[Rfam]
Record summary: Shown here is a 75-nucleotide RNA sequence from Streptomyces zagrosensis, a member of the family "ASpks TB sRNA". NCBI's taxonomy places the organism under Bacteria, Actinomycetota, Kitasatosporales, Streptomycetaceae, Streptomyces. Pairs were carried over by alignment from the consensus structure, which is taken from published work. The match comes from Rfam's covariance-model search (78 bits).

RNA sequence: CUUCACCGCCCCGAGCCACAGGGGCCGGUCGGCGGGGCGGUUCUGGCCGUAGGUGGCGAGCAGCGCCUGUGCCUC
Numbered sequence: 001c002u003u004c005a006c007c008g009c010c011c012c013g014a015g016c017c018a019c020a021g022g023g024g025c026c027g028g029u030c031g032g033c034g035g036g037g038c039g040g041u042u043c044u045g046g047c048c049g050u051a052g053g054u055g056g057c058g059a060g061c062a063g064c065g066c067c068u069g070u071g072c073c074u075c
Base pairs, nucleotide, nucleotide: 015025016024017023032070033069038065039064043060044059047056048055049054